[Rfam]
RNA sequence: GGAUGUUCUGAAGACCUGCUCGCUAGGCCACGCACGGAGGACGUCAGUUCCUCAUGGGCUCCGCGCCCGCCUAGGGGAAAGUCCCCGGACCGCCGGCAGAGAGUGCCGGGCGCUGCCGCGCCCCCGCCCGCCGCCGCUUCACGUAACCCUCCGCUGAGACGCCCGCGGGCCGAGCGGGUGAGCGCGGGGCGGGCUCUCGUCACGGCCACAGACACGCAGGUAGCGCGCUAGGCGCGCCAACAGAACGGGGCUCACUCUCAGGUCAUC
Numbered sequence: 001g002g003a004u005g006u007u008c009u010g011a012a013g014a015c016c017u018g019c020u021c022g023c024u025a026g027g028c029c030a031c032g033c034a035c036g037g038a039g040g041a042c043g044u045c046a047g048u049u050c051c052u053c054a055u056g057g058g059c060u061c062c063g064c065g066c067c068c069g070c071c072u073a074g075g076g077g078a079a080a081g082u083c084c085c086c087g088g089a090c091c092g093c094c095g096g097c098a099g100a101g102a103g104u105g106c107c108g109g110g111c112g113c114u115g116c117c118g119c120g121c122c123c124c125c126g127c128c129c130g131c132c133g134c135c136g137c138u139u140c141a142c143g144u145a146a147c148c149c150u151c152c153g154c155u156g157a158g159a160c161g162c163c164c165g166c167g168g169g170c171c172g173a174g175c176g177g178g179u180g181a182g183c184g185c186g187g188g189g190c191g192g193g194c195u196c197u198c199g200u201c202a203c204g205g206c207c208a209c210a211g212a213c214a215c216g217c218a219g220g221u222a223g224c225g226c227g228c229u230a231g232g233c234g235c236g237c238c239a240a241c242a243g244a245a246c247g248g249g250g251c252u253c254a255c256u257c258u259c260a261g262g263u264c265a266u267c
Base pairs, nucleotide, nucleotide: 002267003266004265005264007262008261009260010259011258014221015220016219017218018217019216023074024073025072026071027070028069037053038052039051040050041049080252081251083250084249085248086247095107096106097105098104108123109122110121111120112119113118125193127191131189132188134187135186136185137184140182142180151177152176153175154174161170162169163168223237224236225235226234227233228232
The record is a 267-nucleotide RNA from Vireo altiloquus, which matches "RNase MRP" in Rfam. On this family, see Schmitt et al., FASEB J 1993: "Secondary structure of RNase MRP RNA as predicted by phylogenetic comparison". The match comes from Rfam's covariance-model search (148 bits).